[Rfam]
RNA sequence: CGCCUAAACUCGUCGUAAGCGAUCGGCGAGCAUGGCUUAAAAACCAGUAACGGAUAGAGAACCCAUCAUUGUGGGGCUACCGUUACUGGUCAUACUGGGAAACUGGUAUGGAUGACGCAAGUCAUC
Numbered sequence: 001c002g003c004c005u006a007a008a009c010u011c012g013u014c015g016u017a018a019g020c021g022a023u024c025g026g027c028g029a030g031c032a033u034g035g036c037u038u039a040a041a042a043a044c045c046a047g048u049a050a051c052g053g054a055u056a057g058a059g060a061a062c063c064c065a066u067c068a069u070u071g072u073g074g075g076g077c078u079a080c081c082g083u084u085a086c087u088g089g090u091c092a093u094a095c096u097g098g099g100a101a102a103c104u105g106g107u108a109u110g111g112a113u114g115a116c117g118c119a120a121g122u123c124a125u126c
Stems, first nucleotide, its partner, number of pairs: 002036003009030007044089010057077001062075005091110008111126006
The family of this 126-nucleotide sequence is "LOOT RNA". The family's RNA type in Rfam is small RNA.